[Rfam]
RNA sequence: AGCGCUGUGUGCGGGAGCUCGGCUGGACCGGGCUGAGAGGGCGGCUGUGGGCUGCCGACCGCUGGAACCUGACCGGGUAAUGCCGGCGUAGGGAGUACACGUGAGCGCGUC
Dot-bracket structure: .....(((((((((..(((((.......)))))......(((((((...)))))))..)))).....((((.((((......))))..))))..)))))............

Overview:
TPP riboswitch aptamer (THI element): a 111-nucleotide RNA sequence from Planosporangium flavigriseum. Lineage of the source: Bacteria > Bacillati > Actinomycetota > Micromonosporaceae > Planosporangium. Vitamin B(1) in its active form thiamin pyrophosphate (TPP) is an essential coenzyme that is synthesised by coupling of pyrimidine and thiazole moieties in bacteria.